A member of the RNA family "Small Cajal body specific RNA 11" from Sphenodon punctatus, 140 nucleotides long. scaRNAs are a specific class of small nuclear RNAs which localise to the Cajal bodies and guide the modification of RNA polymerase II transcribed spliceosomal RNAs U1, U2, U4, U5 and U12. ACA57 belongs to the H/ACA box class of guide RNAs as it has the predicted hairpin-hinge-hairpin-tail structure, conserved H/ACA-box motifs and is found associated with GAR1. Rfam classes the family as a small Cajal body RNA. A search with the family's covariance model found it, with a score of 58 bits. For this family Rfam cites "Cajal body-specific small nuclear RNAs: a novel class of 2'-O-methylation and pseudouridylation guide RNAs" (Darzacq et al., EMBO J, 2002).
[Rfam]
RNA sequence: CUGUCCUGCCCAGCCAGUGCUGCUCCCCUUACCAAAGCUGUGGUGUGGGGUGUGUGGGGGCGGACACAGAGCAACCUGCCUCACGGGUUAGGAGGACUGCACCAAGGAAUGUGCUGCCUUCAAAGGCACGAGAGGACACU
Numbered sequence: 001c002u003g004u005c006c007u008g009c010c011c012a013g014c015c016a017g018u019g020c021u022g023c024u025c026c027c028c029u030u031a032c033c034a035a036a037g038c039u040g041u042g043g044u045g046u047g048g049g050g051u052g053u054g055u056g057g058g059g060g061c062g063g064a065c066a067c068a069g070a071g072c073a074a075c076c077u078g079c080c081u082c083a084c085g086g087g088u089u090a091g092g093a094g095g096a097c098u099g100c101a102c103c104a105a106g107g108a109a110u111g112u113g114c115u116g117c118c119u120u121c122a123a124a125g126g127c128a129c130g131a132g133a134g135g136a137c138a139c140u
Base pairs, nucleotide, nucleotide: 002066003065004064005063006062010059011058022053023052026049027048028047030045031044079135080134081133082132084130086127088125089124092121093120094119095118097116099114100113101112102111